[Rfam]
This 84-nucleotide RNA from Nannospalax galili belongs to the Rfam family "Small nucleolar RNA SNORD11". NCBI's taxonomy places the organism under Eukaryota, Opisthokonta, Chordata, Sarcopterygii, Nannospalax. Clan: SNORD11 clan. The family's RNA type in Rfam is C/D-box small nucleolar RNA. The literature on the family includes a 2001 paper in EMBO J by Huttenhofer et al., "RNomics: an experimental approach that identifies 201 candidates for novel, small, non-messenger RNAs in mouse".

RNA sequence: GUGUUCAAUGAUGAUUUUAUUACUUUGCCUGAUUUCUUUUUUGAAUAAUGAAGGCUUCUUUAGUCACUACCUCUUCUGAGACAC
Numbered sequence: 001g002u003g004u005u006c007a008a009u010g011a012u013g014a015u016u017u018u019a020u021u022a023c024u025u026u027g028c029c030u031g032a033u034u035u036c037u038u039u040u041u042u043g044a045a046u047a048a049u050g051a052a053g054g055c056u057u058c059u060u061u062a063g064u065c066a067c068u069a070c071c072u073c074u075u076c077u078g079a080g081a082c083a084c
Stems, first nucleotide, its partner, number of pairs: 001084004